[Rfam]
RNA sequence: GGCCUUUGUGUUGCCCCUUCGCUCAUGGAAACUAGUGAAUGUGGGGUCAAAAAAGGCAUACAGGGAAUGCUUUGCAACCUUUUCCUGCCCUUAGACUGUGUAUCUUCCGGGCAGGACUCCCACAAGUAACUGUU
Number, nucleotide and partner (000 for none) at each position: 001g000002g057003c056004c055005u054006u053007u052008g000009u049010g048011u000012u046013g000014c044015c043016c041017c000018u039019u038020c037021g036022c035023u034024c000025a000026u000027g000028g000029a000030a000031a000032c000033u000034a023035g022036u021037g020038a019039a018040u000041g016042u000043g015044g014045g000046g012047u000048c010049a009050a000051a000052a007053a006054a005055g004056g003057c002058a000059u000060a000061c000062a000063g000064g000065g000066a000067a000068u000069g127070c126071u125072u124073u122074g121075c000076a000077a118078c000079c000080u000081u000082u000083u116084c115085c114086u113087g112088c111089c109090c000091u000092u000093a000094g103095a000096c000097u000098g000099u000100g000101u000102a000103u094104c000105u000106u000107c000108c000109g089110g000111g088112c087113a086114g085115g084116a083117c000118u077119c000120c000121c074122a073123c000124a072125a071126g070127u069128a000129a000130c000131u000132g000133u000134u000
Annotation:
The record is a 134-nucleotide RNA from Oryctolagus cuniculus, which matches "Small nucleolar RNA SNORA13" in Rfam. The family's RNA type in Rfam is H/ACA-box small nucleolar RNA. About the family: ACA13 is a member of the H/ACA class of snoRNA that guide the sites of modification of uridines to pseudouridines. The family's consensus secondary structure was predicted with CMfinder.